[Rfam]
RNA sequence: AAUUUUCUUCGGGGCAAGGCGAAAUUCCUUACCGGCGGUUAUAGUCCGCGACUCCUUUAACAACUGUUAUUGGACUGAUUUGGUGAAACUCCAAAACCGACAGUAUAGUCUGGAUGAGAGAAGAAAAUU
Number, nucleotide and partner (000 for none) at each position: 001a000002a000003u127004u126005u125006u124007c123008u122009u121010c120011g000012g000013g000014g000015c000016a000017a029018g028019g027020c000021g000022a000023a000024a000025u000026u000027c019028c018029u017030u000031a109032c108033c099034g098035g049036c048037g047038g046039u000040u000041a000042u000043a000044g097045u096046c038047c037048g036049c035050g000051a000052c000053u074054c073055c000056u000057u000058u000059a000060a000061c000062a000063a000064c000065u000066g000067u000068u000069a000070u000071u000072g000073g054074a053075c000076u000077g000078a000079u095080u094081u093082g092083g091084u000085g000086a000087a000088a000089c000090u000091c083092c082093a081094a080095a079096a045097c044098c034099g033100a000101c112102a111103g110104u000105a000106u000107a000108g032109u031110c103111u102112g101113g000114a000115u000116g000117a000118g000119a000120g010121a009122a008123g007124a006125a005126a004127a003128u000129u000
RNA: FMN riboswitch aptamer (RFN element)